[Rfam]
RNA sequence: GUUGGAUAUGGAGAUAUGUGUCCGUCCACUAUCGGGGGGAAAUUCGUCGGAUCUUUGUGCGCAAUCGCAGGGGUUCUCACCAUAGCUUUACCUGUCCCUGUAAUUGUAUCCAAU
Numbered sequence: 001g002u003u004g005g006a007u008a009u010g011g012a013g014a015u016a017u018g019u020g021u022c023c024g025u026c027c028a029c030u031a032u033c034g035g036g037g038g039g040a041a042a043u044u045c046g047u048c049g050g051a052u053c054u055u056u057g058u059g060c061g062c063a064a065u066c067g068c069a070g071g072g073g074u075u076c077u078c079a080c081c082a083u084a085g086c087u088u089u090a091c092c093u094g095u096c097c098c099u100g101u102a103a104u105u106g107u108a109u110c111c112a113a114u
Base pairs, nucleotide, nucleotide: 001114002113004111005110007108008107009106010105011104014101015100016099018097020095021094037077038076039075040074050062
Dot-bracket structure: ((.((.(((((..(((.(.((...............((((.........(...........)...........))))................)).).)))..))))).)).))